[Rfam]
RNA sequence: UCGCCCACAAUGCCUUCAACGGUUUCAACACGGAUGUGGCUUGAUGCAAGUGUGAGCGGACACAACACAUCGGCCGGUCGGCUUCGAGCCGAAGCCCUUCACAGGGGCAUCCCUGUUGGAGUCGUACCCGGCGGACGGUGUCGCUCCCCGGCUCCUUCAUUGGUCUCCUCGCGCUAACCCCGUAGCGUGUGGUUUUUAGCGGGCUCCAGGCCCGCUUUUUUUU
Numbered sequence: 001u002c003g004c005c006c007a008c009a010a011u012g013c014c015u016u017c018a019a020c021g022g023u024u025u026c027a028a029c030a031c032g033g034a035u036g037u038g039g040c041u042u043g044a045u046g047c048a049a050g051u052g053u054g055a056g057c058g059g060a061c062a063c064a065a066c067a068c069a070u071c072g073g074c075c076g077g078u079c080g081g082c083u084u085c086g087a088g089c090c091g092a093a094g095c096c097c098u099u100c101a102c103a104g105g106g107g108c109a110u111c112c113c114u115g116u117u118g119g120a121g122u123c124g125u126a127c128c129c130g131g132c133g134g135a136c137g138g139u140g141u142c143g144c145u146c147c148c149c150g151g152c153u154c155c156u157u158c159a160u161u162g163g164u165c166u167c168c169u170c171g172c173g174c175u176a177a178c179c180c181c182g183u184a185g186c187g188u189g190u191g192g193u194u195u196u197u198a199g200c201g202g203g204c205u206c207c208a209g210g211c212c213c214g215c216u217u218u219u220u221u222u223u
Stems, first nucleotide, its partner, number of pairs: 005163003019125012032112006038075003043071004050063004078092005095106004130145004167192002170189007198216008
Annotation
The record is a 223-nucleotide RNA from Burkholderia sp. WAC0059, which matches "Burkholderia sRNA Bp1_Cand871_SIPHT" in Rfam. The organism belongs to Burkholderia, within Bacteria. A reference for the family is Khoo et al. (2012), "Computational discovery and RT-PCR validation of novel Burkholderia conserved and Burkholderia pseudomallei unique sRNAs", BMC Genomics. The family's RNA type in Rfam is small RNA. Rfam links the family to the GO term bacterial biofilm matrix. The family's consensus secondary structure was predicted with CMfinder.